FMN riboswitch aptamer (RFN element): a 188-nucleotide RNA sequence from Okibacterium fritillariae.

RNA sequence: AACGUGCUCCGGGGUCGGUGAGAGUCCGAACCGGCGGUGAUAGUCCGCGAACCCGAGAAACGUUCCUGCCGCCGAAGCUCCGGCCCACGGCGACGAGAACGCGUCGAGGGCCGAUCCGGUGGAAUUCCGGAACCGACGGUUAUGGGUCUGCACCAGCAGGCUCGAGUCCGGAUGAGAGGAAGCACGGG
Numbered sequence: 001a002a003c004g005u006g007c008u009c010c011g012g013g014g015u016c017g018g019u020g021a022g023a024g025u026c027c028g029a030a031c032c033g034g035c036g037g038u039g040a041u042a043g044u045c046c047g048c049g050a051a052c053c054c055g056a057g058a059a060a061c062g063u064u065c066c067u068g069c070c071g072c073c074g075a076a077g078c079u080c081c082g083g084c085c086c087a088c089g090g091c092g093a094c095g096a097g098a099a100c101g102c103g104u105c106g107a108g109g110g111c112c113g114a115u116c117c118g119g120u121g122g123a124a125u126u127c128c129g130g131a132a133c134c135g136a137c138g139g140u141u142a143u144g145g146g147u148c149u150g151c152a153c154c155a156g157c158a159g160g161c162u163c164g165a166g167u168c169c170g171g172a173u174g175a176g177a178g179g180a181a182g183c184a185c186g187g188g
Base pairs, nucleotide, nucleotide: 003186004185005184006183007182008181009179010178016028017027018026032135033134034048035047036046037045043133044132052110053109115131116130117129118128119127137170138169139168
Dot-bracket structure: ..((((((((.....(((.......)))...((((((.....[[))))...((.......................................................))....(((((.......)))))]])).(((............................))).......)).))))))..